RNA sequence: UCGAAGCUCCAUUACAUGGAAAAGAUCCCAGUAUAUAGGAGGUUAUGAAAAGAAACGAGCAAUAAUCAUUUUCUUGUUCCGUCAAAAGGGUGUUAUUGCUCCUUU
Numbered sequence: 001u002c003g004a005a006g007c008u009c010c011a012u013u014a015c016a017u018g019g020a021a022a023a024g025a026u027c028c029c030a031g032u033a034u035a036u037a038g039g040a041g042g043u044u045a046u047g048a049a050a051a052g053a054a055a056c057g058a059g060c061a062a063u064a065a066u067c068a069u070u071u072u073c074u075u076g077u078u079c080c081g082u083c084a085a086a087a088g089g090g091u092g093u094u095a096u097u098g099c100u101c102c103u104u105u
Base pairs, nucleotide, nucleotide: 008020009019010018011017012016053105054104055103057101058100059099060098061097062096063095064094065093067092068091069090071088072087074085075084